About this RNA
The family of this 196-nucleotide sequence from Gordonia insulae is "c-di-AMP riboswitch aptamer (ydaO/yuaA leader)". The organism belongs to Gordonia, within Bacteria. A search with the family's covariance model found it, with a score of 55 bits.
[Rfam]
RNA sequence: CUACGGGACGCACCUGAAACAUCUAGGAGCGAGGACGGGGGACCCACCCUCCGUACAGAGACCGGGCAUCGGAUCACUGCGACACCGAUUCGAUGUCCUUGGGGUUAAGUCCCGGCGUGAUUCACGUCAGGCCGAGACCGGGCACCUCUCGCCCGAACCCGACAGCUGACUUCGUAGGCGCGUGGAGAGAGGAACA
Numbered sequence: 001c002u003a004c005g006g007g008a009c010g011c012a013c014c015u016g017a018a019a020c021a022u023c024u025a026g027g028a029g030c031g032a033g034g035a036c037g038g039g040g041g042a043c044c045c046a047c048c049c050u051c052c053g054u055a056c057a058g059a060g061a062c063c064g065g066g067c068a069u070c071g072g073a074u075c076a077c078u079g080c081g082a083c084a085c086c087g088a089u090u091c092g093a094u095g096u097c098c099u100u101g102g103g104g105u106u107a108a109g110u111c112c113c114g115g116c117g118u119g120a121u122u123c124a125c126g127u128c129a130g131g132c133c134g135a136g137a138c139c140g141g142g143c144a145c146c147u148c149u150c151g152c153c154c155g156a157a158c159c160c161g162a163c164a165g166c167u168g169a170c171u172u173c174g175u176a177g178g179c180g181c182g183u184g185g186a187g188a189g190a191g192g193a194a195c196a
Stems, first nucleotide, its partner, number of pairs: 001033002035175006045101002102160003110137002113134004140154004